MIR8008 microRNA precursor family: a 55-nucleotide RNA from Solanum tuberosum. The match comes from Rfam's covariance-model search (67 bits).
[Rfam]
RNA sequence: AAACCCAGAAAAGCAACGAACAGGAUCCUUUAGUUCGUCGCUUUUCUGGAUUUUG
Numbered sequence: 001a002a003a004c005c006c007a008g009a010a011a012a013g014c015a016a017c018g019a020a021c022a023g024g025a026u027c028c029u030u031u032a033g034u035u036c037g038u039c040g041c042u043u044u045u046c047u048g049g050a051u052u053u054u055g
Stems, first nucleotide, its partner, number of pairs: 001053003005049010016038006